[Rfam]
RNA sequence: GAGGGUGCCUCUGACCGUGCCCGAUGACACCAACCUGCCCAAUGAAGCACGGGCGACCGUGGGGAGGGUGUUCCCUGUGGGAACCCUCGCCAUUCACGGCGAGGAGGAGGUCAGCUCCUCCACGUUC
Numbered sequence: 001g002a003g004g005g006u007g008c009c010u011c012u013g014a015c016c017g018u019g020c021c022c023g024a025u026g027a028c029a030c031c032a033a034c035c036u037g038c039c040c041a042a043u044g045a046a047g048c049a050c051g052g053g054c055g056a057c058c059g060u061g062g063g064g065a066g067g068g069u070g071u072u073c074c075c076u077g078u079g080g081g082a083a084c085c086c087u088c089g090c091c092a093u094u095c096a097c098g099g100c101g102a103g104g105a106g107g108a109g110g111u112c113a114g115c116u117c118c119u120c121c122a123c124g125u126u127c
Base pairs, nucleotide, nucleotide: 003022004021005020006019007018008017037069038068039067040066048061049060050059051058052057070084071083072082073081074080085104086103087102088101089100090099091098

Rfam assigns this 127-nucleotide RNA sequence from Pyrococcus furiosus to the family "HgcC family RNA". The base pairs follow the family's consensus structure, which was predicted with RNAalifold. Rfam's curators put it in the seed alignment. The HgcC ncRNA gene was identified computationally in AT-rich hyperthermophiles. The genes were named hgcA through hgcG ('high GC'). HgcC is of unknown function. Two other homologues were detected called HhcA and HhcB after 'homologue of hgcC'. This family contains a large number of putative archaeal matches to the 3' end of the known ncRNAs. Many of these partly overlap coding regions. On this family, see Klein et al., Proc Natl Acad Sci U S A 2002: "Noncoding RNA genes identified in AT-rich hyperthermophiles".